About this RNA:
Flavo-1 RNA: a 74-nucleotide RNA from Gelidibacter algens.
RNA sequence: UUUUAGCCCUGAUAGGAGCGGCAUCCUUUUUUGAUUUUUCUUCAAAAAAGAUAUAGCGGAUAGCAGGAAUAGCU
Numbered sequence: 001u002u003u004u005a006g007c008c009c010u011g012a013u014a015g016g017a018g019c020g021g022c023a024u025c026c027u028u029u030u031u032u033g034a035u036u037u038u039u040c041u042u043c044a045a046a047a048a049a050g051a052u053a054u055a056g057c058g059g060a061u062a063g064c065a066g067g068a069a070u071a072g073c074u
Stems, first nucleotide, its partner, number of pairs: 009066003013062002018057002023052003028048007

Lineage of the source: Bacteria > Pseudomonadati > Bacteroidota > Flavobacteriia > Gelidibacter. Pairs were carried over by alignment from the consensus structure, which is taken from published work.